[Rfam]
RNA: Glutamine riboswitch aptamer (glnA leader)
RNA sequence: AUCGUUCAACUCUUUAUAGAGUCGGAAGUAGGCAAUAGCCGAAGGAACGCAUG
Dot-bracket structure: ..(((((.(((((....)))))..[.....(((....)))....)))))]...